[Rfam]
RNA sequence: CUUGAUCAGUAAAUAAUACACACACUCAUCAUAACGAUGUUGCGGGGUGCCGAAAGGUCGCAGUAUUGGAUGGGUGGAGGCUCAAC
Number, nucleotide and partner (000 for none) at each position: 001c000002u000003u000004g000005a000006u000007c000008a000009g000010u000011a000012a000013a000014u000015a000016a000017u000018a000019c000020a000021c000022a000023c076024a075025c074026u073027c072028a071029u070030c069031a000032u000033a000034a000035c000036g067037a066038u065039g064040u063041u062042g061043c060044g059045g000046g000047g000048u000049g058050c057051c056052g000053a000054a000055a000056g051057g050058u049059c044060g043061c042062a041063g040064u039065a038066u037067u036068g000069g030070a029071u028072g027073g026074g025075u024076g023077g000078a000079g000080g000081c000082u000083c000084a000085a000086c000

The family of this 86-nucleotide sequence from Oleispira antarctica is "t44 RNA". For this family Rfam cites "Transcriptome analysis of Escherichia coli using high-density oligonucleotide probe arrays" (Tjaden et al., Nucleic Acids Res, 2002). From the family's description: This family consists of a number of bacterial RNA genes of between 135 and 170 bases in length. By type it is a small RNA. It scores 62 bits against the family's covariance model.